[Rfam]
RNA sequence: AAACGUUCACCCUGAUCAUUGCAGGGCGCAGUUCGAGCCAAGCCAUGGAACGGGGACUUGGA
Numbered sequence: 001a002a003a004c005g006u007u008c009a010c011c012c013u014g015a016u017c018a019u020u021g022c023a024g025g026g027c028g029c030a031g032u033u034c035g036a037g038c039c040a041a042g043c044c045a046u047g048g049a050a051c052g053g054g055g056a057c058u059u060g061g062a
Base pairs, nucleotide, nucleotide: 004052005051006050007049008048010026011025012024013023014022038061039060040059041058042057043055044054
Glutamine-II riboswitch aptamer: a 62-nucleotide RNA from Prochlorococcus marinus. Rfam's curators put it in the seed alignment. Its family is annotated with glutamine binding in the Gene Ontology. On this family, see Huang et al., Nucleic Acids Res 2019: "Structure and ligand binding of the glutamine-II riboswitch".